[Rfam]
RNA sequence: CUCUUAUCAAGAGCGACAGAGGGACUGGCCCUACGAUGCAGGUAACUAACAACAAUUAUUAUGUCUACAAGGUGCUAACUUCUGCAAGGUUAACCUUGAGAGAUACGAG
Number, nucleotide and partner (000 for none) at each position: 001c109002u108003c107004u000005u105006a104007u103008c102009a000010a000011g000012a000013g039014c000015g000016a000017c038018a000019g000020a000021g031022g030023g029024a000025c084026u000027g082028g081029c023030c022031c021032u000033a000034c000035g000036a000037u000038g017039c013040a000041g076042g075043u074044a073045a000046c072047u071048a000049a000050c000051a000052a000053c000054a000055a000056u000057u000058a000059u000060u000061a000062u000063g000064u000065c000066u000067a000068c000069a000070a000071g047072g046073u044074g043075c042076u041077a000078a000079c000080u101081u028082c027083u000084g025085c098086a097087a096088g095089g094090u000091u000092a000093a000094c089095c088096u087097u086098g085099a000100g000101a080102g008103a007104u006105a005106c000107g003108a002109g001
Background: A member of the RNA family "SAM riboswitch aptamer (S box leader)" from Haloplasma contractile, 109 nucleotides long. From the family's description: The SAM riboswitch is found upstream of a number of genes which code for proteins involved in methionine or cysteine biosynthesis in Gram-positive bacteria. Rfam links the family to the GO term regulation of gene expression. It scores 52 bits against the family's covariance model.